[Rfam]
RNA sequence: GGUUUUACCCCAGUAUCACAAGGUACUAGGAUGUUCUGACCGGUUCUACGAACUGUGUUGGAUCAACCAAAUUUUUUGAACGCGCUCCUGGGGUAACCGGGAGUGCAAA
Numbered sequence: 001g002g003u004u005u006u007a008c009c010c011c012a013g014u015a016u017c018a019c020a021a022g023g024u025a026c027u028a029g030g031a032u033g034u035u036c037u038g039a040c041c042g043g044u045u046c047u048a049c050g051a052a053c054u055g056u057g058u059u060g061g062a063u064c065a066a067c068c069a070a071a072u073u074u075u076u077u078g079a080a081c082g083c084g085c086u087c088c089u090g091g092g093g094u095a096a097c098c099g100g101g102a103g104u105g106c107a108a109a
Base pairs, nucleotide, nucleotide: 007034008033009030010029013026014025015024016023036060038059039058040057041055042054043053044052045051086105088103089102092098093097

A member of the RNA family "SL2 RNA" from Acrobeloides nanus, 109 nucleotides long. Clan: SL clan. A search with the family's covariance model found it, with a score of 46 bits. For this family Rfam cites "trans splicing of polycistronic Caenorhabditis elegans pre-mRNAs: analysis of the SL2 RNA" (Evans and Blumenthal, Mol Cell Biol, 2000). This family represents SL2 RNA. SL2 RNA is involved in trans splicing in lower eukaryotes.